[Rfam]
RNA sequence: GACUGUUUAUGAUGAUUGUUAAAUGAAACAAUGGGAAUCUCUCUGAAUUAGACUGAAAGAGACAUCUUUAUGCUGAAACAGUG
Number, nucleotide and partner (000 for none) at each position: 001g000002a082003c081004u080005g079006u078007u077008u000009a000010u000011g000012a000013u000014g000015a000016u000017u000018g000019u000020u000021a000022a000023a000024u000025g000026a000027a000028a000029c000030a000031a000032u000033g000034g000035g000036a000037a000038u000039c000040u000041c000042u000043c000044u000045g000046a000047a000048u000049u000050a000051g000052a000053c000054u000055g000056a000057a000058a000059g000060a000061g000062a000063c000064a000065u000066c000067u000068u000069u000070a000071u000072g000073c000074u000075g000076a000077a007078a006079c005080a004081g003082u002083g000
Small nucleolar RNA SNORD79: an 83-nucleotide sequence. About the family: snoRNA U79 or Z22 is found in intron 7 of the gas5 gene in humans and is also present in mice. By type it is a C/D-box small nucleolar RNA. The family is grouped with related families in Rfam's "SNORD74 clan". For this family Rfam cites "Purified box C/D snoRNPs are able to reproduce site-specific 2'-O-methylation of target RNA in vitro" (Galardi et al., Mol Cell Biol, 2002).